[Rfam]
RNA sequence: GGCCCAAAUUUGAUGUAGAGUAGGUUAGAAGGAUCAUCUGACCCUACUAAACUACUCUACUUCGAGAUUGAGCAA
Numbered sequence: 001g002g003c004c005c006a007a008a009u010u011u012g013a014u015g016u017a018g019a020g021u022a023g024g025u026u027a028g029a030a031g032g033a034u035c036a037u038c039u040g041a042c043c044c045u046a047c048u049a050a051a052c053u054a055c056u057c058u059a060c061u062u063c064g065a066g067a068u069u070g071a072g073c074a075a
Base pairs, nucleotide, nucleotide: 002073003072005070006069007068009066011064012063013062015060016059017058018057019056020055021054022053023052025050026049027048028047030045032043034041035040
This 75-nucleotide RNA from Haemonchus placei belongs to the Rfam family "mir-5928 microRNA precursor family". The match comes from Rfam's covariance-model search (65 bits). Pairs were carried over by alignment from the consensus structure, which was predicted with RNAalifold. Rfam 15.1 lists 1,672 matches to the family in 12 species. Gene Ontology terms of the family: miRNA-mediated post-transcriptional gene silencing and RISC complex.